A member of the RNA family "Streptococcus sRNA SpF59 (ldcC RNA)", 64 nucleotides long.

RNA sequence: CGACCGCCGAGCCCUUGAAAAAGGGGGAGGCCAAGGCCACACGGACAGCCGGGUCGAAUGCCGA
Numbered sequence: 001c002g003a004c005c006g007c008c009g010a011g012c013c014c015u016u017g018a019a020a021a022a023g024g025g026g027g028a029g030g031c032c033a034a035g036g037c038c039a040c041a042c043g044g045a046c047a048g049c050c051g052g053g054u055c056g057a058a059u060g061c062c063g064a
Stems, first nucleotide, its partner, number of pairs: 001056005006031003